[Rfam]
RNA sequence: GGAAAUUUGAGAGGAUCUGUCCUUAGUACGAGAGGACCGGGAUGGACAUACCUCUGGUGUACCAGUUGUUCUGCCAAGAGCACCGCUGGGUAGCUACGUAUGGAUUAGAUAAUCGCUGAAAGCAUCUAAGUGAGAAACUAACCUCGAGAUGAGAUUUCCCAUUCGUCAGAAGUAAGACCCCUGAGAGACGAUCAGGUAGAUAGGCUAGAAGUGGAAGUGUAGUGAUGCAUGGAGCGGACUAGUACUAAUAGGUCGAGG
Numbered sequence: 001g002g003a004a005a006u007u008u009g010a011g012a013g014g015a016u017c018u019g020u021c022c023u024u025a026g027u028a029c030g031a032g033a034g035g036a037c038c039g040g041g042a043u044g045g046a047c048a049u050a051c052c053u054c055u056g057g058u059g060u061a062c063c064a065g066u067u068g069u070u071c072u073g074c075c076a077a078g079a080g081c082a083c084c085g086c087u088g089g090g091u092a093g094c095u096a097c098g099u100a101u102g103g104a105u106u107a108g109a110u111a112a113u114c115g116c117u118g119a120a121a122g123c124a125u126c127u128a129a130g131u132g133a134g135a136a137a138c139u140a141a142c143c144u145c146g147a148g149a150u151g152a153g154a155u156u157u158c159c160c161a162u163u164c165g166u167c168a169g170a171a172g173u174a175a176g177a178c179c180c181c182u183g184a185g186a187g188a189c190g191a192u193c194a195g196g197u198a199g200a201u202a203g204g205c206u207a208g209a210a211g212u213g214g215a216a217g218u219g220u221a222g223u224g225a226u227g228c229a230u231g232g233a234g235c236g237g238a239c240u241a242g243u244a245c246u247a248a249u250a251g252g253u254c255g256a257g258g
Stems, first nucleotide, its partner, number of pairs: 001159008011145004017045007047102005055096003062089005067082006106140003113133005162171003173256001176254004180196005201247003204243005211235001217230005
Shown here is a 258-nucleotide part of an RNA from Oenococcus oeni, a member of the family "Bacterial large subunit ribosomal RNA". Rfam links the family to the GO terms ribosome and structural constituent of ribosome.